[Rfam]
RNA sequence: GUUAUGCGACUAACUUCGUUCAGGUGAUGUUCAUUAAGCAAAAUUCCAUCACUGGGCAAAGUUUGUCGCAUAAA
Numbered sequence: 001g002u003u004a005u006g007c008g009a010c011u012a013a014c015u016u017c018g019u020u021c022a023g024g025u026g027a028u029g030u031u032c033a034u035u036a037a038g039c040a041a042a043a044u045u046c047c048a049u050c051a052c053u054g055g056g057c058a059a060a061g062u063u064u065g066u067c068g069c070a071u072a073a074a
Stems, first nucleotide, its partner, number of pairs: 005070006012063003018057002021054003025051001
This 74-nucleotide sequence from Anopheles gambiae belongs to the Rfam family "mir-3 microRNA precursor family".
NCBI's taxonomy places the organism under Eukaryota, Eumetabola, Culicidae, Anophelinae, Anopheles gambiae.